The family of this 264-nucleotide RNA from Butyrivibrio sp. CAG:318 is "Bacterial large signal recognition particle RNA". The family is grouped with related families in Rfam's "SRP clan". Rfam classes the family as a non-coding RNA gene. From the family's description: The signal recognition particle (SRP) is a universally conserved ribonucleoprotein involved in the co-translational targeting of proteins to membranes. The literature on the family includes a 2003 paper in Nucleic Acids Res by Rosenblad et al., "SRPDB: Signal Recognition Particle Database".
RNA sequence: CCAUGCAGCCGGGGAAGUAGCGGCUCCCUGUACCUGAAAUCCGCUAUAGCAGGGGUGAUGUUCUGUUUCGGGCAUUGCAUAUAAUCGCUGCCCGGGCAGACCGGUGUUGAAAUCUGGGUCUUGCGCAAUAGGAAUCUGUGAACCAUGUCAGGUCGGGAACGAAGCAGCAUUAAGCGGAACCUCCUAUGUGACGCAAGGGCACCUGGAUUGAGCCGGUAUGUCCGGUAACGGGUUUUAGUGUAAUGCACAACGCAGAACGCAUGG
Number, nucleotide and partner (000 for none) at each position: 001c264002c263003a262004u261005g260006c259007a000008g056009c055010c054011g029012g028013g027014g026015a025016a000017g000018u022019a000020g000021c000022g018023g000024c000025u015026c014027c013028c012029u011030g000031u000032a000033c053034c052035u051036g050037a000038a000039a000040u000041c000042c000043g000044c000045u000046a000047u000048a000049g000050c036051a035052g034053g033054g010055g009056u008057g000058a000059u000060g000061u000062u256063c255064u254065g253066u252067u000068u250069c000070g248071g000072g246073c245074a244075u000076u242077g241078c240079a239080u238081a000082u000083a235084a234085u000086c000087g000088c000089u227090g226091c000092c000093c224094g223095g222096g221097c220098a219099g000100a000101c000102c216103g214104g213105u212106g000107u000108u000109g000110a000111a209112a208113u207114c206115u205116g204117g203118g202119u201120c197121u196122u195123g194124c193125g192126c188127a187128a000129u186130a185131g184132g183133a182134a000135u178136c177137u176138g175139u174140g000141a000142a000143c000144c000145a170146u169147g168148u167149c000150a000151g000152g000153u162154c161155g160156g000157g000158a000159a000160c155161g154162a153163a000164g000165c000166a000167g148168c147169a146170u145171u000172a000173a000174g139175c138176g137177g136178a135179a000180c000181c000182u133183c132184c131185u130186a129187u127188g126189u000190g000191a000192c125193g124194c123195a122196a121197g120198g000199g000200c000201a119202c118203c117204u116205g115206g114207a113208u112209u111210g000211a000212g105213c104214c103215g000216g102217u000218a000219u098220g097221u096222c095223c094224g093225g000226u090227a089228a000229c000230g000231g000232g000233u000234u084235u083236u000237a000238g080239u079240g078241u077242a076243a000244u074245g073246c072247a000248c070249a000250a068251c000252g066253c065254a064255g063256a062257a000258c000259g006260c005261a004262u003263g002264g001